[Rfam]
RNA sequence: AAAAGACAAAGGUAAACUUAUCGAAAGAUAAGGGCACAAAGCUAUGGGUCUAAGGGAGUUUCCAUCCUAUGAUUGCCAGGUUGCCGAA
Numbered sequence: 001a002a003a004a005g006a007c008a009a010a011g012g013u014a015a016a017c018u019u020a021u022c023g024a025a026a027g028a029u030a031a032g033g034g035c036a037c038a039a040a041g042c043u044a045u046g047g048g049u050c051u052a053a054g055g056g057a058g059u060u061u062c063c064a065u066c067c068u069a070u071g072a073u074u075g076c077c078a079g080g081u082u083g084c085c086g087a088a
Stems, first nucleotide, its partner, number of pairs: 012037002017032006040082004045078003048073003055067003
Shown here is an 88-nucleotide RNA sequence from Defluviitalea raffinosedens, a member of the family "c-di-GMP-I riboswitch aptamer". The match comes from Rfam's covariance-model search (81 bits).